Description: Rfam assigns this 77-nucleotide sequence from Panagrellus redivivus to the family "mir-50 microRNA precursor family".
[Rfam]
Nucleotides: 077
Stems, first nucleotide, its partner, number of pairs: 008067014027050004
Number, partner (000 for none) and nucleotide at each position: 001000c002000g003000g004000g005000u006000g007000u008067g009066a010065u011064a012063u013062g014061u015060c016059u017058g018057g019056u020055a021054u022000u023000c024000u025000u026000g027050g028049g029048u030047u031000g032000u033000g034000c035000c036000a037000g038000a039000a040000u041000g042000a043000g044000a045000u046000c047030a048029a049028c050027c051000g052000g053000c054021g055020u056019g057018c058017u059016a060015g061014g062013c063012a064011u065010a066009u067008c068000c069000u070000a071000u072000c073000c074000u075000c076000g077000g
Notes
The family's consensus secondary structure was predicted with RNAalifold.